[Rfam]
RNA sequence: UAGACCAGAAGAGGCGCGCUAGCCAGGUAUGUGAUGUCAGAGCUCUAUCGCUCGCAGCAGCACAGAGGGGGUUUAGCGCCGAGGACAAACAACAGGUAGAGGUUGUUUGUUCGGUUGCCAGGGCUGAAUCCCUGGGACUGUCACCUGAUGUUUUGGUGGAGAGCUUCUGGCCUU
Numbered sequence: 001u002a003g004a005c006c007a008g009a010a011g012a013g014g015c016g017c018g019c020u021a022g023c024c025a026g027g028u029a030u031g032u033g034a035u036g037u038c039a040g041a042g043c044u045c046u047a048u049c050g051c052u053c054g055c056a057g058c059a060g061c062a063c064a065g066a067g068g069g070g071g072u073u074u075a076g077c078g079c080c081g082a083g084g085a086c087a088a089a090c091a092a093c094a095g096g097u098a099g100a101g102g103u104u105g106u107u108u109g110u111u112c113g114g115u116u117g118c119c120a121g122g123g124c125u126g127a128a129u130c131c132c133u134g135g136g137a138c139u140g141u142c143a144c145c146u147g148a149u150g151u152u153u154u155g156g157u158g159g160a161g162a163g164c165u166u167c168u169g170g171c172c173u174u
Stems, first nucleotide, its partner, number of pairs: 006169006016079007024071001030064004035059003083112011113139004118135006141159005147153001

A member of the RNA family "Lysine riboswitch aptamer" from Alishewanella agri, 174 nucleotides long.
The source organism's lineage runs through Bacteria, Pseudomonadati, Alteromonadales, Alteromonadaceae and Alishewanella agri.
Pairs were carried over by alignment from the consensus structure, which is taken from published work.
A search with the family's covariance model found it, with a score of 88 bits.
Rfam links the family to the GO term lysine biosynthetic process.